[Rfam]
RNA sequence: UGCGAGAACCCACCGUCGGCAGGAGCGGGGGAACCAGGUAAGUGCCCUGCGGGACCGAUGUCCCGAAGGGCUUGGGGUGAAGCCGUGACGGUGCCGCCGAAGAGGCGGACGUUGCGGCCGGGCUACUACUCCGGCCCGAAUCCGACAGCUCACCUCGCAGGCGUAGGAGAGGGAUUCC
Dot-bracket structure: (((.....((...........)).((((((....(((((..............................)))))(((.....((((((((...................))))))))..((((..........))))...))).........))))))..)))...............

The record is a 178-nucleotide sequence from Streptomyces qinglanensis, which matches "c-di-AMP riboswitch aptamer (ydaO/yuaA leader)" in Rfam.
Taxonomically the source falls in Streptomyces (Bacteria, Actinomycetota, Kitasatosporales, Streptomycetaceae).
A search with the family's covariance model found it, with a score of 62 bits.